[Rfam]
RNA sequence: GCCGCAUUUUAAAACGUUCCUUGCUUCCAUGGGCCGCGGCUGACCCUGACAGGAGGCUGAAUAAUCCGUAAGGAGCAACCGAUG
Dot-bracket structure: ...............(((((((((((((..(((..........))).....))))))............)))))))........
Numbered sequence: 001g002c003c004g005c006a007u008u009u010u011a012a013a014a015c016g017u018u019c020c021u022u023g024c025u026u027c028c029a030u031g032g033g034c035c036g037c038g039g040c041u042g043a044c045c046c047u048g049a050c051a052g053g054a055g056g057c058u059g060a061a062u063a064a065u066c067c068g069u070a071a072g073g074a075g076c077a078a079c080c081g082a083u084g
Stems, first nucleotide, its partner, number of pairs: 016076007023057006031046003